[Rfam]
RNA: Selenocysteine transfer RNA
RNA sequence: GGAAGCGCGUGGUCGGCUGGUGCCACCCCCGGUCUUCAAAAUCGGUGCGGGGCAGCUCUGCUGUCUCGGGCAGGUUCGAUUCCUGUGCGUUUCC
Numbered sequence: 001g002g003a004a005g006c007g008c009g010u011g012g013u014c015g016g017c018u019g020g021u022g023c024c025a026c027c028c029c030c031g032g033u034c035u036u037c038a039a040a041a042u043c044g045g046u047g048c049g050g051g052g053c054a055g056c057u058c059u060g061c062u063g064u065c066u067c068g069g070g071c072a073g074g075u076u077c078g079a080u081u082c083c084u085g086u087g088c089g090u091u092u093c094c
Base pairs, nucleotide, nucleotide: 001094002093003092004091005090006089007088008087009086011027012026013025015024016023017022029045030044031043032042033041048068049067050066051065052064071085072084073083074082